RNA sequence: ACGGACACGGAUGUCCGUGGUAUAAGCAGUAGCGAGUUUUCGUAGGAAAACUCGUCCAUUAAGAAUGAACACGGAUGUUCAUUCUUAAUGAGGC
Numbered sequence: 001a002c003g004g005a006c007a008c009g010g011a012u013g014u015c016c017g018u019g020g021u022a023u024a025a026g027c028a029g030u031a032g033c034g035a036g037u038u039u040u041c042g043u044a045g046g047a048a049a050a051c052u053c054g055u056c057c058a059u060u061a062a063g064a065a066u067g068a069a070c071a072c073g074g075a076u077g078u079u080c081a082u083u084c085u086u087a088a089u090g091a092g093g094c
Stems, first nucleotide, its partner, number of pairs: 001018006033054009057090014
Dot-bracket structure: ((((((......))))))..............(((((((((....)))))))))..((((((((((((((......))))))))))))))....

TD-2 RNA: a 94-nucleotide RNA sequence from Treponema parvum. By type it is a small RNA. The literature on the family includes a 2007 paper in Nucleic Acids Res by Weinberg et al., "Identification of 22 candidate structured RNAs in bacteria using the CMfinder comparative genomics pipeline". The source organism's lineage runs through Bacteria, Pseudomonadati, Spirochaetota, Spirochaetia and Treponema.